[Rfam]
RNA sequence: AGCGCUUUUCUGCUGCCUGUCUCAAAGCAGCGGCCUCAUCACCGGGAUAGGUGAACUGCACACUGUAGUAUAAGUCAGGUUGCUGCUCAU
Number, nucleotide and partner (000 for none) at each position: 001a000002g083003c082004g000005c000006u000007u000008u000009u000010c000011u000012g000013c000014u000015g000016c000017c000018u000019g000020u000021c000022u000023c000024a000025a000026a000027g000028c000029a000030g000031c000032g000033g000034c000035c000036u000037c000038a000039u000040c000041a000042c000043c000044g000045g000046g000047a000048u000049a000050g000051g063052u062053g061054a000055a000056c000057u000058g000059c000060a000061c053062a052063c051064u000065g000066u000067a000068g000069u000070a000071u000072a000073a000074g000075u000076c000077a000078g000079g000080u000081u000082g003083c002084u000085g000086c000087u000088c000089a000090u000
Description
Rhizobiales sRNA Atu_Ti3: a 90-nucleotide sequence from Mesorhizobium sanjuanii. The match comes from Rfam's covariance-model search (51 bits). Taxonomically the source falls in Mesorhizobium (Bacteria, Pseudomonadota, Alphaproteobacteria, Phyllobacteriaceae). Rfam classes the family as a small RNA.